[Rfam]
Description
This 76-nucleotide sequence from Lymphocryptovirus humangamma4 belongs to the Rfam family "mir-BART21 microRNA precursor family". The sequence is in the family's curated seed alignment. The source organism's lineage runs through Viruses, Herviviricetes, Herpesvirales, Lymphocryptovirus and Lymphocryptovirus humangamma4.
RNA sequence: GGGCUGGGUAUUCACUAGUGAAGGCAACUAACACAGUUAGACGUGCUAGUUGUGCCCACUGGUGUUUAUCCGGUCC
Numbered sequence: 001g002g003g004c005u006g007g008g009u010a011u012u013c014a015c016u017a018g019u020g021a022a023g024g025c026a027a028c029u030a031a032c033a034c035a036g037u038u039a040g041a042c043g044u045g046c047u048a049g050u051u052g053u054g055c056c057c058a059c060u061g062g063u064g065u066u067u068a069u070c071c072g073g074u075c076c
Base pairs, nucleotide, nucleotide: 001076002075003074004073005072006071007070008069009068010067015062016061017060018059019058020057024053025052026051027050028049029048030047